[Rfam]
RNA sequence: UUUUUAUCGGGAGCAGUGCCUUCCAUAAUAA
Numbered sequence: 001u002u003u004u005u006a007u008c009g010g011g012a013g014c015a016g017u018g019c020c021u022u023c024c025a026u027a028a029u030a031a
Base pairs, nucleotide, nucleotide: 001031002030004028005027006026007025009024010023011022012021013020014018
RNA: Iron response element II